The family of this 85-nucleotide RNA sequence from Triticum aestivum is "MIR1120/MIR1122 microRNA precursor family". The base pairs follow the family's consensus structure, which was predicted with RNAalifold. Lineage of the source: Eukaryota > Magnoliopsida > Poaceae > Triticodae > Triticum. It scores 91 bits against the family's covariance model.
[Rfam]
RNA sequence: CUACUCCCUCUGUCCCAUAAUACAAGAACGUUUUUGACACUAGUAGUGCCAAAAACGUUCUUAUAUUAUGGGACAGAGGGAGUAC
Number, nucleotide and partner (000 for none) at each position: 001c000002u000003a083004c082005u081006c000007c079008c078009u077010c076011u075012g000013u073014c072015c071016c070017a069018u000019a067020a066021u065022a064023c000024a062025a061026g060027a059028a058029c057030g056031u055032u054033u053034u052035u051036g050037a000038c048039a047040c046041u045042a000043g000044u000045a041046g040047u039048g038049c000050c036051a035052a034053a033054a032055a031056c030057g029058u028059u027060c026061u025062u024063a000064u022065a021066u020067u019068a000069u017070g016071g015072g014073a013074c000075a011076g010077a009078g008079g007080g000081a005082g004083u003084a000085c000
Annotation: A reference for the family is Yao et al. (2007), "Cloning and characterization of microRNAs from wheat (Triticum aestivum L.)", Genome Biol.